About this RNA:
c-di-AMP riboswitch aptamer (ydaO/yuaA leader): a 155-nucleotide RNA from Salisediminibacterium halotolerans. The literature on the family includes a 2004 paper in Proc Natl Acad Sci U S A by Barrick et al., "New RNA motifs suggest an expanded scope for riboswitches in bacterial genetic control". The match comes from Rfam's covariance-model search (90 bits). Taxonomically the source falls in Salisediminibacterium (Bacteria, Bacillati, Bacilli, Bacillaceae).
[Rfam]
RNA sequence: UUCCUUUGAUUGCUGAAACUGUUUGGCCAAACAGUGCGGGGGAACCAUUUUUCGGCGUGCAUUCGUCUUGGGGUGAAUCUUAAGUCUGCUUAAGAAGGGAUACUCUCGAUCCCUAAUCCGACAGCUAACCUCGUAAGUGUUUUUUAAGAGAGAAA
Numbered sequence: 001u002u003c004c005u006u007u008g009a010u011u012g013c014u015g016a017a018a019c020u021g022u023u024u025g026g027c028c029a030a031a032c033a034g035u036g037c038g039g040g041g042g043a044a045c046c047a048u049u050u051u052u053c054g055g056c057g058u059g060c061a062u063u064c065g066u067c068u069u070g071g072g073g074u075g076a077a078u079c080u081u082a083a084g085u086c087u088g089c090u091u092a093a094g095a096a097g098g099g100a101u102a103c104u105c106u107c108g109a110u111c112c113c114u115a116a117u118c119c120g121a122c123a124g125c126u127a128a129c130c131u132c133g134u135a136a137g138u139g140u141u142u143u144u145u146a147a148g149a150g151a152g153a154a155a
Stems, first nucleotide, its partner, number of pairs: 011139004018035007036134006046070002071119003079094004097113004